Description:
Selenocysteine transfer RNA: a 92-nucleotide RNA sequence from Solilutibacter silvestris. The organism belongs to Solilutibacter, within Bacteria. The match comes from Rfam's covariance-model search (66 bits). The literature on the family includes a 1997 paper in Nucleic Acids Res by Lowe and Eddy, "tRNAscan-SE: a program for improved detection of transfer RNA genes in genomic sequence". The base pairs follow the family's consensus structure, which is taken from published work.

[Rfam]
RNA sequence: GGAAGGCAUGCGCAUCCGGGCAUGCGGCCGGGCUUCAAACCCGGUAGGGGGCGUCGAUCGCUCCCUGGUAGGUUCGACUCCUGCUGCCUUCC
Numbered sequence: 001g002g003a004a005g006g007c008a009u010g011c012g013c014a015u016c017c018g019g020g021c022a023u024g025c026g027g028c029c030g031g032g033c034u035u036c037a038a039a040c041c042c043g044g045u046a047g048g049g050g051g052c053g054u055c056g057a058u059c060g061c062u063c064c065c066u067g068g069u070a071g072g073u074u075c076g077a078c079u080c081c082u083g084c085u086g087c088c089u090u091c092c
Base pairs, nucleotide, nucleotide: 001092002091003090004089005088006087007086008085011026012025013024014023015022027045028044029043030042031041032040047065048064049063050062051061069083070082071081072080